Rfam assigns this 279-nucleotide sequence from Xylona heveae to the family "Fungal signal recognition particle RNA". A reference for the family is Rosenblad et al. (2003), "SRPDB: Signal Recognition Particle Database", Nucleic Acids Res. Its family is annotated with SRP-dependent cotranslational protein targeting to membrane, signal sequence recognition, signal recognition particle, endoplasmic reticulum targeting and signal recognition particle, plasma membrane targeting in the Gene Ontology. By type it is a non-coding RNA gene. Its Rfam clan is "SRP clan".
RNA sequence: UGGCUGUAAUGGUCGUAAGUCGAGGAGGUUGCCGUAUCCCAGCGGACCUCUCCCCGAUCACACCAACGGAAGUACGGUGUCCGGUUCGAACUUUGUGGUAGUUCUCAACUCGUGCGGGUAACCCACGAAUCGCUUGUGGAGCUCUAAGCAAUGAGAAUGACCCUUGAGGGAAGCAAUUCUGCAGAGACAUUCUCACCAUGGAGUGGCGGCGCCGGAUCGCACCGACUUCUGGUAUGGGACGGGUUUGCUGGGCUGGUGAUCAACUUUUGCCAUUCAUUU
Dot-bracket structure: ((((.......))))(.(((.(..(((((((((....((((((((((((.(...............(((.(((.((((((((((((((.(((((((((.(.(((((((.(((((.((....))))))).....))).)))).)(...)...(((((((....(((....(((....)))....)))..))))))))))))))))..))).)))))...))))))))).))).......).))))))))))))..))....)))))))..).))).)...